Shown here is a 158-nucleotide sequence from Glycine soja, a member of the family "MIR4371 microRNA precursor family". The source organism's lineage runs through Eukaryota, Tracheophyta, Spermatophyta, Gunneridae and Glycine subgen. Soja.
RNA sequence: CCAUUAAGCGAUGAUGUGACAAAUGAAGUGUCACGUCAUCAUGUCUUGUCACAUACAUGUCAUUGCCAUGUCAUUGAAGGUGAUGAUGAGACAAUGAGAUGUUUGUGACAAGGCAUGAUGACAUGACACUUUGUCUGUCACGUCAUGACUUAACGAAA
Number, nucleotide and partner (000 for none) at each position: 001c000002c155003a000004u153005u152006a151007a150008g149009c000010g000011a146012u145013g144014a143015u142016g141017u140018g139019a138020c137021a136022a000023a134024u133025g132026a131027a130028g129029u128030g127031u126032c125033a124034c000035g122036u121037c120038a119039u118040c117041a116042u115043g114044u113045c112046u111047u000048g109049u108050c107051a106052c105053a000054u000055a102056c101057a100058u099059g000060u000061c000062a000063u000064u000065g000066c000067c000068a000069u000070g087071u086072c085073a084074u083075u000076g000077a000078a000079g000080g000081u000082g000083a074084u073085g072086a071087u070088g000089a000090g000091a000092c000093a000094a000095u000096g000097a000098g000099a058100u057101g056102u055103u000104u000105g052106u051107g050108a049109c048110a000111a046112g045113g044114c043115a042116u041117g040118a039119u038120g037121a036122c035123a000124u033125g032126a031127c030128a029129c028130u027131u026132u025133g024134u023135c000136u021137g020138u019139c018140a017141c016142g015143u014144c013145a012146u011147g000148a000149c008150u007151u006152a005153a004154c000155g002156a000157a000158a000